[Rfam]
This 52-nucleotide RNA from Orycteropus afer belongs to the Rfam family "mir-1302 microRNA precursor family". The family's consensus secondary structure was predicted with WAR. Rfam links the family to the GO terms RISC complex and miRNA-mediated post-transcriptional gene silencing. On this family, see Morin et al., Genome Res 2008: "Application of massively parallel sequencing to microRNA profiling and discovery in human embryonic stem cells".
RNA sequence: UUAAAAGUAUAAGUAUGUUCCAUGCAAUACUUGGGAAAUAUUUAUACUAAAA
Numbered sequence: 001u002u003a004a005a006a007g008u009a010u011a012a013g014u015a016u017g018u019u020c021c022a023u024g025c026a027a028u029a030c031u032u033g034g035g036a037a038a039u040a041u042u043u044a045u046a047c048u049a050a051a052a
Stems, first nucleotide, its partner, number of pairs: 006048007014040003018036004022031001